[Rfam]
RNA sequence: GUAAUAUAAGAUACAGUCUUUUAGCUUUUAACUAAAAAAACUAAGAGACGUCUCUUAUAUCUCUUAUUUAAGAGACGUCUCUUAGCUUUUUUAGUUAAAAAAUAAAAAACUGUAUUUUAUAUUAC
Numbered sequence: 001g002u003a004a005u006a007u008a009a010g011a012u013a014c015a016g017u018c019u020u021u022u023a024g025c026u027u028u029u030a031a032c033u034a035a036a037a038a039a040a041c042u043a044a045g046a047g048a049c050g051u052c053u054c055u056u057a058u059a060u061c062u063c064u065u066a067u068u069u070a071a072g073a074g075a076c077g078u079c080u081c082u083u084a085g086c087u088u089u090u091u092u093a094g095u096u097a098a099a100a101a102a103u104a105a106a107a108a109a110c111u112g113u114a115u116u117u118u119a120u121a122u123u124a125c
Base pairs, nucleotide, nucleotide: 001125002124003123004122005121006120007119008118009117010116011115012114013113014112015111016110017109019107020106021105022104023103026100027099028098029097030096031095032094033093034092035091036090037089038088039087041085042084043083044082045081046080047079
Rfam assigns this 125-nucleotide RNA sequence from Brassica oleracea to the family "MIR9563 microRNA precursor family".
The family's consensus secondary structure was predicted with RNAalifold.
Rfam links the family to the GO terms RISC complex and miRNA-mediated post-transcriptional gene silencing.
The match comes from Rfam's covariance-model search (97 bits).
The organism belongs to Brassica oleracea, within Eukaryota.